[Rfam]
RNA sequence: UGCUGUGAUGGUGUAAUUUGCGUCUUACUCUAUGAACAGUGACAGUUGCCUGCUGUCUCGUGCUGGCGUGGAAGGUUGACAAAUAUUAAGACUGAGCU
Numbered sequence: 001u002g003c004u005g006u007g008a009u010g011g012u013g014u015a016a017u018u019u020g021c022g023u024c025u026u027a028c029u030c031u032a033u034g035a036a037c038a039g040u041g042a043c044a045g046u047u048g049c050c051u052g053c054u055g056u057c058u059c060g061u062g063c064u065g066g067c068g069u070g071g072a073a074g075g076u077u078g079a080c081a082a083a084u085a086u087u088a089a090g091a092c093u094g095a096g097c098u
Stems, first nucleotide, its partner, number of pairs: 002097002022080003030071005039063002041057005
Rfam assigns this 98-nucleotide RNA sequence from Sinocyclocheilus anshuiensis to the family "Small nucleolar RNA SNORD16". Pairs were carried over by alignment from the consensus structure, which was predicted with PFOLD. Taxonomically the source falls in Sinocyclocheilus (Eukaryota, Opisthokonta, Euteleostomi, Cyprininae). Clan: SNORD16 clan. For this family Rfam cites "A novel small nucleolar RNA (U16) is encoded inside a ribosomal protein intron and originates by processing of the pre-mRNA" (Fragapane et al., EMBO J, 1993).